Rfam assigns this 258-nucleotide part of an RNA from Adhaeretor mobilis to the family "Bacterial large subunit ribosomal RNA". For this family Rfam cites "Crystal structure of the ribosome at 5.5 A resolution" (Yusupov et al., Science, 2001). Lineage of the source: Bacteria > Pseudomonadati > Planctomycetia > Lacipirellulaceae > Adhaeretor.
[Rfam]
Nucleotides: 258
Base pairs, nucleotide, nucleotide: 001159002158003157004156005155006154007153008152011145012144013143014142017045018044019043020042021041022040047102048101049100050099051098055096056095057094062089063088064087065086066085067082068081069080070079071078072077107139108138113133114132115131116130117129162172163171164170177254178253179252180251181197182196183195184194185193202248203247204246205244206243207242208241209240212236218231219230220229221228222227
Number, partner (000 for none) and nucleotide at each position: 001159c002158g003157a004156a005155a006154c007153u008152u009000g010000a011145a012144g013143a014142g015000g016000u017045u018044c019043u020042u021041c022040u023000u024000u025000a026000g027000u028000a029000c030000g031000a032000g033000a034000g035000g036000a037000u038000u039000u040022a041021g042020a043019a044018g045017g046000a047102c048101g049100a050099c051098c052000c053000u054000c055096u056095g057094g058000u059000g060000u061000u062089c063088c064087u065086g066085u067082u068081g069080u070079c071078g072077c073000g074000c075000u076000a077072g078071c079070g080069g081068c082067a083000c084000g085066g086065c087064a088063g089062g090000g091000u092000a093000g094057c095056u096055a097000a098051g099050g100049u101048c102047g103000g104000a105000a106000c107139g108138g109000a110000u111000a112000a113133a114132c115131g116130c117129u118000g119000a120000a121000a122000g123000c124000a125000u126000a127000u128000a129117a130116g131115c132114g133113u134000g135000a136000a137000g138108c139107c140000c141000g142014c143013u144012c145011u146000g147000a148000g149000a150000u151000u152008a153007g154006g155005u156004u157003u158002c159001g160000u161000a162172a163171c164170c165000c166000a167000a168000u169000g170164g171163g172162u173000g174000a175000g176000a177254g178253u179252c180251c181197c182196c183195u184194g185193g186000a187000a188000g189000a190000c191000g192000a193185c194184c195183a196182g197181g198000u199000u200000g201000a202248u203247a204246g205244g206243c207242c208241g209240g210000a211000u212236g213000u214000g215000u216000a217000a218231g219230u220229a221228c222227a223000g224000c225000a226000a227222u228221g229220u230219a231218u232000u233000c234000a235000g236212c237000u238000a239000a240209c241208c242207g243206g244205u245000a246204c247203u248202a249000a250000u251180g252179g253178a254177c255000g256000a257000a258000c